[Rfam]
Nucleotides: 413
Stems, first nucleotide, its partner, number of pairs: 001409010011398001012343007020044009049396003053393005058221004071217005076090005091105001092103004106212002111210002113206003128152002130148007160178006179201001180199002183196005225300003235291006270282001307326008
Number, partner (000 for none) and nucleotide at each position: 001409u002408c003407a004406g005405a006404c007403g008402g009401u010400c011398g012343g013342a014341u015340g016339g017338c018337c019000g020044c021043u022042c023041c024040g025039u026038u027037c028036g029000g030000c031000u032000u033000u034000g035000c036028c037027g038026a039025a040024u041023g042022g043021g044020g045000a046000g047000g048000a049396a050395a051394g052000u053393c054392c055391g056390g057389g058221c059220u060219c061218c062000a063000c064000g065000g066000g067000a068000a069000c070000a071217c072216g073215g074214u075213g076090c077089c078088g079087g080086g081000u082000a083000a084000c085000g086080c087079c088078c089077g090076g091105c092103g093102g094101g095100g096000g097000c098000a099000a100095c101094c102093c103092u104000a105091g106212g107211g108000a109000a110000a111210g112209u113206g114205c115204c116000a117000c118000a119000g120000a121000g122000a123000g124000c125000a126000g127000a128152c129151c130148g131147c132146c133145g134144g135143u136142c137000u138000a139000c140000a141000c142136g143135g144134c145133c146132g147131g148130c149000a150000a151129g152128g153000g154000u155000g156000a157000a158000a159000g160178g161177g162176u163175g164174c165173g166000g167000u168000a169000a170000g171000a172000g173165c174164g175163c176162a177161c178160c179201g180199c181198g182000g183196c184195c185194c186193c187192g188000g189000c190000a191000a192187c193186g194185g195184g196183g197000g198181c199180g200000g201179c202000a203000u204115g205114g206113u207000a208000a209112a210111c211107c212106c213075c214074a215073c216072c217071g218061g219060g220059a221058g222000c223000a224000a225300g226299a227298u228000c229000g230000a231000a232000u233000a234000g235291g236290g237289a238288c239287g240286g241000c242000a243000c244000g245000c246000c247000g248000g249000g250000c251000g252000u253000g254000u255000u256000u257000c258000a259000c260000g261000c262000c263000a264000g265000g266000c267000a268000g269000g270282c271000a272000g273000c274000g275000u276000u277000u278000u279000c280000g281000g282270g283000c284000c285000g286240c287239c288238g289237u290236c291235c292000g293000g294000g295000u296000g297000u298227a299226u300225c301000g302000c303000a304000c305000g306000a307326g308325g309324c310323g311322u312321u313320c314319g315000g316000c317000g318000a319314c320313g321312g322311g323310c324309g325308c326307c327000c328000c329000a330000g331000a332000u333000g334000a335000a336000u337018g338017g339016c340015c341014a342013u343012c344000c345000c346000c347000g348000c349000c350000c351000c352000g353000g354000a355000u356000c357000c358000a359000c360000c361000g362000c363000a364000a365000g366000g367000u368000g369000u370000u371000u372000c373000a374000g375000g376000g377000g378000u379000g380000c381000g382000g383000a384000c385000a386000g387000a388000a389057c390056c391055c392054g393053g394051c395050u396049u397000a398011c399000a400010g401009a402008c403007c404006g405005u406004c407003u408002g409001a410000c411000c412000u413000c
Notes
The record is a 413-nucleotide sequence from Pararhodospirillum oryzae, which matches "Bacterial RNase P class A" in Rfam. The source organism's lineage runs through Bacteria, Pseudomonadota, Alphaproteobacteria, Rhodospirillaceae and Pararhodospirillum. The family's consensus secondary structure is taken from published work. By type it is a ribozyme. Its family is annotated with dimeric ribonuclease P complex, tRNA processing and ribonuclease P activity in the Gene Ontology.